Source information
The record is a 68-nucleotide RNA, which matches "L13-Bacteroidia ribosomal protein leader" in Rfam. On this family, see Eckert and Weinberg, BMC Microbiol 2020: "Discovery of 20 novel ribosomal leader candidates in bacteria and archaea". Rfam classes the family as a cis-regulatory leader.
[Rfam]
Nucleotides: 068
Base pairs, nucleotide, nucleotide: 001017002016003015004014005013028062029061030060031059032058034056035055036054037053038052040051041050042049
Number, partner (000 for none) and nucleotide at each position: 001017g002016g003015g004014g005013c006000g007000a008000a009000u010000u011000a012000u013005g014004c015003c016002c017001c018000a019000a020000a021000g022000u023000g024000c025000g026000u027000g028062u029061g030060a031059a032058u033000a034056g035055u036054u037053c038052g039000c040051u041050c042049u043000u044000u045000g046000g047000c048000c049042a050041g051040a052038c053037g054036g055035a056034c057000g058032g059031u060030u061029c062028g063000u064000g065000a066000a067000u068000c